Bacterial small subunit ribosomal RNA: a 596-nucleotide part of an RNA from Nonomuraea fuscirosea.
The source organism's lineage runs through Bacteria, Bacillati, Actinomycetota, Streptosporangiaceae and Nonomuraea.
Its Rfam clan is "SSU clan".
[Rfam]
RNA sequence: UGACGGGGGCCCGCACAAGCGGCGGAGCAUGUUGCUUAAUUCGACGCAACGCGAAGAACCUUACCAAGGUUUGACAUCACCCGGACAGGUCUAGAGAUAGAUCCUUCUUCGGACUGGGUGACAGGUGGUGCAUGGCUGUCGUCAGCUCGUGUCGUGAGAUGUUGGGUUAAGUCCCGCAACGAGCGCAACCCUUGCUCCAUGUUGCCAGCAACACCGUUUUGGUGGUUGGGGACUCAUGGGGGACUGCCGGGGUCAACUCGGAGGAAGGUGGGGAUGACGUCAAGUCAUCAUGCCCCUUAUGUCUUGGGCUGCAAACAUGCUACAAUGGCCGGUACAGAGGGUUGCGAUGCCGUGAGGCGGAGCGAAUCCCUAAAAGCCGGUCUCAGUUCGGAUUGGGGUCUGCAACUCGACCCCAUGAAGUCGGAGUCGCUAGUAAUCGCAGAUCAGCAACGCUGCGGUGAAUACGUUCCCGGGCCUUGUACACACCGCCCGUCACGUCACGAAAGUCGGCAACACCCGAAGCCCGUGGCCCAACCAGCUUGCUGGGGGGAGCGGUCGAAGGUGGGGCUGGCGAUUGGGACGAAGUCGUAACAAGG
Numbered sequence: 001u002g003a004c005g006g007g008g009g010c011c012c013g014c015a016c017a018a019g020c021g022g023c024g025g026a027g028c029a030u031g032u033u034g035c036u037u038a039a040u041u042c043g044a045c046g047c048a049a050c051g052c053g054a055a056g057a058a059c060c061u062u063a064c065c066a067a068g069g070u071u072u073g074a075c076a077u078c079a080c081c082c083g084g085a086c087a088g089g090u091c092u093a094g095a096g097a098u099a100g101a102u103c104c105u106u107c108u109u110c111g112g113a114c115u116g117g118g119u120g121a122c123a124g125g126u127g128g129u130g131c132a133u134g135g136c137u138g139u140c141g142u143c144a145g146c147u148c149g150u151g152u153c154g155u156g157a158g159a160u161g162u163u164g165g166g167u168u169a170a171g172u173c174c175c176g177c178a179a180c181g182a183g184c185g186c187a188a189c190c191c192u193u194g195c196u197c198c199a200u201g202u203u204g205c206c207a208g209c210a211a212c213a214c215c216g217u218u219u220u221g222g223u224g225g226u227u228g229g230g231g232a233c234u235c236a237u238g239g240g241g242g243a244c245u246g247c248c249g250g251g252g253u254c255a256a257c258u259c260g261g262a263g264g265a266a267g268g269u270g271g272g273g274a275u276g277a278c279g280u281c282a283a284g285u286c287a288u289c290a291u292g293c294c295c296c297u298u299a300u301g302u303c304u305u306g307g308g309c310u311g312c313a314a315a316c317a318u319g320c321u322a323c324a325a326u327g328g329c330c331g332g333u334a335c336a337g338a339g340g341g342u343u344g345c346g347a348u349g350c351c352g353u354g355a356g357g358c359g360g361a362g363c364g365a366a367u368c369c370c371u372a373a374a375a376g377c378c379g380g381u382c383u384c385a386g387u388u389c390g391g392a393u394u395g396g397g398g399u400c401u402g403c404a405a406c407u408c409g410a411c412c413c414c415a416u417g418a419a420g421u422c423g424g425a426g427u428c429g430c431u432a433g434u435a436a437u438c439g440c441a442g443a444u445c446a447g448c449a450a451c452g453c454u455g456c457g458g459u460g461a462a463u464a465c466g467u468u469c470c471c472g473g474g475c476c477u478u479g480u481a482c483a484c485a486c487c488g489c490c491c492g493u494c495a496c497g498u499c500a501c502g503a504a505a506g507u508c509g510g511c512a513a514c515a516c517c518c519g520a521a522g523c524c525c526g527u528g529g530c531c532c533a534a535c536c537a538g539c540u541u542g543c544u545g546g547g548g549g550g551a552g553c554g555g556u557c558g559a560a561g562g563u564g565g566g567g568c569u570g571g572c573g574a575u576u577g578g579g580a581c582g583a584a585g586u587c588g589u590a591a592c593a594a595g596g
Stems, first nucleotide, its partner, number of pairs: 001483002003480003007477007015467002019430005024323001026321008034312002040055004064307007077121002080118005088103006106113002124296002127294004133290002135285003138281001140279002145184006151160003163176004190273004195241007205230002209228003244264002247261005327382007339370003344363002349358003389420001394415007436459007486595001488592001491588002496582004501577003506572006514564004522557001524555004530550003535546004
About this RNA:
The match comes from Rfam's covariance-model search (1548 bits). The family has 99 seed sequences and 42,628 matches in Rfam 15.1.